[Rfam]
RNA sequence: CUAUACUGGUAGUGAUACUAGUAGAAGGGCUGUAAGGAGUCAGCAGACGGCAUAGUACCACAGUCAAGUAUACAGAUUGCGGGAAGGCC
Numbered sequence: 001c002u003a004u005a006c007u008g009g010u011a012g013u014g015a016u017a018c019u020a021g022u023a024g025a026a027g028g029g030c031u032g033u034a035a036g037g038a039g040u041c042a043g044c045a046g047a048c049g050g051c052a053u054a055g056u057a058c059c060a061c062a063g064u065c066a067a068g069u070a071u072a073c074a075g076a077u078u079g080c081g082g083g084a085a086g087g088c089c
Stems, first nucleotide, its partner, number of pairs: 001027002004023008039048003049089003058082002061079005
A member of the RNA family "Group II catalytic intron D1-D4-1", 89 nucleotides long.
Rfam's curators put it in the seed alignment.